[Rfam]
RNA: Archaeal large subunit ribosomal RNA, nucleotides 2697 to 2957
RNA sequence: GUUGUUUGAGGGGAAGUUGCCCAUAGUACGAGAGGAACAGGGCAGCGCAGCCUCUGGUUUAUCAGUUGUCCGACAGGGCAGGCUGAGCCGCUAAGCUGUUUAGGAUAACUCCUGAAAGCAUCUAAGGAGGAAACCUUUCCCGAGAAAAGACAGCCUUCUUUACAGAGAAGGGCAGCUAUAGAAGAUAGCAUUGAUAGAAUGGAGGUGUAAGCAUCGAGCUUUUUGCGAGAUGUUCAGCCUGCCGUUACUAAUAGCCCAACG
Numbered sequence: 001g002u003u004g005u006u007u008g009a010g011g012g013g014a015a016g017u018u019g020c021c022c023a024u025a026g027u028a029c030g031a032g033a034g035g036a037a038c039a040g041g042g043c044a045g046c047g048c049a050g051c052c053u054c055u056g057g058u059u060u061a062u063c064a065g066u067u068g069u070c071c072g073a074c075a076g077g078g079c080a081g082g083c084u085g086a087g088c089c090g091c092u093a094a095g096c097u098g099u100u101u102a103g104g105a106u107a108a109c110u111c112c113u114g115a116a117a118g119c120a121u122c123u124a125a126g127g128a129g130g131a132a133a134c135c136u137u138u139c140c141c142g143a144g145a146a147a148a149g150a151c152a153g154c155c156u157u158c159u160u161u162a163c164a165g166a167g168a169a170g171g172g173c174a175g176c177u178a179u180a181g182a183a184g185a186u187a188g189c190a191u192u193g194a195u196a197g198a199a200u201g202g203a204g205g206u207g208u209a210a211g212c213a214u215c216g217a218g219c220u221u222u223u224u225g226c227g228a229g230a231u232g233u234u235c236a237g238c239c240u241g242c243c244g245u246u247a248c249u250a251a252u253a254g255c256c257c258a259a260c261g
Stems, first nucleotide, its partner, number of pairs: 001154007010141004016046007047099005055093003062086005067080005102136003109129005170257004175189004195250003198246005203240003211233005218226001